[Rfam]
RNA sequence: GUCAUCGUGAGAUGGGGUGCGGAGGGUCUGAAUGCAAAACCCUGUACAAAGCGAAAGCGAACCUAAGCUGGCGUGAGGGGGGGAUGACCAUGCUAAAAGAUGGGAAGUCCAAAUCGCCGACAACUGACCCAAAGCGUUAAGAAGGUUGGGAUAGGGUGGAAGUAUAGUAG
Number, nucleotide and partner (000 for none) at each position: 001g000002u015003c014004a013005u012006c011007g000008u000009g000010a000011g006012a005013u004014g003015g002016g000017g000018u000019g000020c000021g000022g000023a000024g000025g000026g000027u000028c170029u169030g168031a000032a000033u000034g163035c162036a000037a000038a000039a157040c156041c155042c154043u153044g152045u150046a000047c148048a147049a146050a000051g000052c000053g000054a000055a000056a000057g000058c000059g000060a000061a000062c145063c144064u143065a000066a000067g000068c000069u000070g000071g137072c136073g135074u000075g000076a000077g000078g130079g129080g128081g000082g110083g109084a108085u107086g000087a000088c103089c102090a101091u100092g000093c000094u000095a000096a000097a000098a000099g000100a091101u090102g089103g088104g000105a000106a000107g085108u084109c083110c082111a000112a000113a000114u000115c000116g000117c000118c000119g000120a000121c000122a000123a000124c000125u000126g000127a000128c080129c079130c078131a000132a000133a000134g000135c073136g072137u071138u000139a000140a000141g000142a000143a064144g063145g062146u049147u048148g047149g000150g045151a000152u044153a043154g042155g041156g040157u039158g000159g000160a000161a000162g035163u034164a000165u000166a000167g000168u030169a029170g028
RNA: Group II catalytic intron D1-D4-3
Organism: Ammoniphilus sp. CFH 90114